The family of this 71-nucleotide RNA from Malurus cyaneus is "mir-24 microRNA precursor family". Rfam links the family to the GO terms RISC complex and miRNA-mediated post-transcriptional gene silencing. The organism belongs to Malurus cyaneus, within Eukaryota. Pairs were carried over by alignment from the consensus structure, which was predicted with RNAalifold. This family represents the microRNA (miRNA) mir-24 family. miRNAs are transcribed as ~70nt precursors (modelled here) and subsequently processed by the Dicer enzyme to give a ~22nt product. In this case the mature sequence comes from the 3' arm of the precursor. It scores 58 bits against the family's covariance model.

[Rfam]
RNA sequence: UGCCCCGGUGCCCGCUGAGAUGAAUUUGCAGUUGCUUUGGAUAAACUGGCUCAGUUCAGCAGGAACAGGGG
Numbered sequence: 001u002g003c004c005c006c007g008g009u010g011c012c013c014g015c016u017g018a019g020a021u022g023a024a025u026u027u028g029c030a031g032u033u034g035c036u037u038u039g040g041a042u043a044a045a046c047u048g049g050c051u052c053a054g055u056u057c058a059g060c061a062g063g064a065a066c067a068g069g070g071g
Stems, first nucleotide, its partner, number of pairs: 003071004008066002011063002015059005021053003029048004